A member of the RNA family "mir-7 microRNA precursor family", 95 nucleotides long. This family represents the microRNA (miRNA) precursor mir-7. The match comes from Rfam's covariance-model search (52 bits).
RNA sequence: UUUACGAUUUACGAUGUACGACUUACGAUUUGUUGCUUACGCAUCUGUUUCUGGUGUAAGCAACAAAUCGUAAGUCGUACAUCGUAAAUCGUAAA
Numbered sequence: 001u002u003u004a005c006g007a008u009u010u011a012c013g014a015u016g017u018a019c020g021a022c023u024u025a026c027g028a029u030u031u032g033u034u035g036c037u038u039a040c041g042c043a044u045c046u047g048u049u050u051c052u053g054g055u056g057u058a059a060g061c062a063a064c065a066a067a068u069c070g071u072a073a074g075u076c077g078u079a080c081a082u083c084g085u086a087a088a089u090c091g092u093a094a095a
Base pairs, nucleotide, nucleotide: 002094003093004092005091006090007089008088010086011085012084013083014082015081016080017079019077020076021075022074023072025071026070027069028068029067030066031065032064033063034062035061036060037059038058039057